RNA sequence: AACGGAGCUGGAUUUAGUGUUGCAAUUGCCAGACCGUAAGCCACUACG
Number, nucleotide and partner (000 for none) at each position: 001a037002a000003c000004g034005g000006a000007g000008c032009u031010g000011g030012a027013u000014u000015u046016a045017g044018u043019g042020u000021u000022g000023c000024a000025a000026u000027u012028g000029c000030c011031a009032g008033a000034c004035c000036g000037u001038a000039a000040g000041c000042c019043a018044c017045u016046a015047c000048g000

The record is a 48-nucleotide RNA from Umbravirus nicotianae, which matches "Exoribonuclease-resistant RNA (xrRNA) plant-infecting virus (class 3)" in Rfam. Rfam links the family to the GO term viral RNA genome replication. The family's RNA type in Rfam is cis-regulatory element. For this family Rfam cites "The pseudoknot structure of a viral RNA reveals a conserved mechanism for programmed exoribonuclease resistance" (Gezelle et al., bioRxiv [Preprint], 2024). Rfam describes the family as follows. Exoribonuclease-resistant RNA (xrRNA) plant-infecting virus (class 3) is a ncRNA that was reported in Plant viruses.